[Rfam]
RNA: Actinobacteria sRNA Ms_IGR-5
RNA sequence: ACACGAGAGAGGAGGUGGUCUGCAGUUGAAGAACUUGAGGACACGUGAGGUGACCAUCCGCUAGCGCGGUUUCCACGAGGCAUUCACUGCCGCGUUCGCGACCCGAUCCGGGGCGCGGCCGUGCCGGCGAAUACCAGGUGGUCACCGGACCCCCGCACCCCGACUCGUCCAGUCGGCGUAGGCCCCGUCAACCGGGGUGGUGCGGGGGUCACUCAUU
Numbered sequence: 001a002c003a004c005g006a007g008a009g010a011g012g013a014g015g016u017g018g019u020c021u022g023c024a025g026u027u028g029a030a031g032a033a034c035u036u037g038a039g040g041a042c043a044c045g046u047g048a049g050g051u052g053a054c055c056a057u058c059c060g061c062u063a064g065c066g067c068g069g070u071u072u073c074c075a076c077g078a079g080g081c082a083u084u085c086a087c088u089g090c091c092g093c094g095u096u097c098g099c100g101a102c103c104c105g106a107u108c109c110g111g112g113g114c115g116c117g118g119c120c121g122u123g124c125c126g127g128c129g130a131a132u133a134c135c136a137g138g139u140g141g142u143c144a145c146c147g148g149a150c151c152c153c154c155g156c157a158c159c160c161c162g163a164c165u166c167g168u169c170c171a172g173u174c175g176g177c178g179u180a181g182g183c184c185c186c187g188u189c190a191a192c193c194g195g196g197g198u199g200g201u202g203c204g205g206g207g208g209u210c211a212c213u214c215a216u217u
Base pairs, nucleotide, nucleotide: 014058015057016056017055018054019053059129060128061127062126064124065123066122067121068120069119070118071117148210149209150208151207152206153205154204155203156202157201158200159199160176161175162174163173164172